[Rfam]
RNA: MIR2655 microRNA precursor family
RNA sequence: CCCUUAUCUUUAUUUUAGGUUUCAAGUUGGUCCCUUAUCUUUUUUUUAGGUUUCAAGUUGGUCCCUUCCGUCAAUUUUUUUACUGUUACCGUUAAUUCUCGACACGUGUCACAUGUUCAAGUGUGCCACGUGUCCAAAUUUAACGGAAAUAGUUAAAAAAUUGACGGAAGGGACCAACUUGAAACCUAAAAUAAAGAUAAGGGACCAACUUGAAACUUUUAAAAGAUAAGGGA
Numbered sequence: 001c002c003c004u005u006a007u008c009u010u011u012a013u014u015u016u017a018g019g020u021u022u023c024a025a026g027u028u029g030g031u032c033c034c035u036u037a038u039c040u041u042u043u044u045u046u047u048a049g050g051u052u053u054c055a056a057g058u059u060g061g062u063c064c065c066u067u068c069c070g071u072c073a074a075u076u077u078u079u080u081u082a083c084u085g086u087u088a089c090c091g092u093u094a095a096u097u098c099u100c101g102a103c104a105c106g107u108g109u110c111a112c113a114u115g116u117u118c119a120a121g122u123g124u125g126c127c128a129c130g131u132g133u134c135c136a137a138a139u140u141u142a143a144c145g146g147a148a149a150u151a152g153u154u155a156a157a158a159a160a161u162u163g164a165c166g167g168a169a170g171g172g173a174c175c176a177a178c179u180u181g182a183a184a185c186c187u188a189a190a191a192u193a194a195a196g197a198u199a200a201g202g203g204a205c206c207a208a209c210u211u212g213a214a215a216c217u218u219u220u221a222a223a224a225g226a227u228a229a230g231g232g233a
Base pairs, nucleotide, nucleotide: 002231003230004229005228006227007226008225025210026209027208029206030205031204033202034201035200036199037198038197039196040195041194042193044191045190047188048187049186